RNA: c-di-AMP riboswitch aptamer (ydaO/yuaA leader)
Organism: Aneurinibacillus migulanus
RNA sequence: GCAAAAAAAACGCCAAAUCCAGUUCUGUUAUAUAACUGGAACGGGGGAACCACUUAUACUUAUAGUGGGGUGAAACCGCGAUUAUAUGCGGUCGGGCGCCUUUCGACCGAACCCGUCAGCUAACCUCGUCGGCGAUAGGAGAGGGAGA
Number, nucleotide and partner (000 for none) at each position: 001g000002c000003a000004a000005a000006a000007a000008a000009a000010a000011c134012g133013c132014c131015a000016a000017a000018u040019c039020c038021a037022g036023u035024u034025c000026u000027g000028u000029u000030a000031u000032a000033u000034a024035a023036c022037u021038g020039g019040a018041a129042c128043g127044g126045g125046g124047g000048a000049a000050c000051c067052a066053c065054u064055u000056a000057u000058a000059c000060u000061u000062a000063u000064a054065g053066u052067g051068g114069g113070g112071u000072g000073a000074a000075a000076c091077c090078g089079c088080g000081a000082u000083u000084a000085u000086a000087u000088g079089c078090g077091g076092u000093c000094g108095g107096g000097c105098g000099c000100c000101u000102u000103u000104c000105g097106a000107c095108c094109g000110a000111a000112c070113c069114c068115g000116u000117c000118a000119g000120c000121u000122a000123a000124c046125c045126u044127c043128g042129u041130c000131g014132g013133c012134g011135a000136u000137a000138g000139g000140a000141g000142a000143g000144g000145g000146a000147g000148a000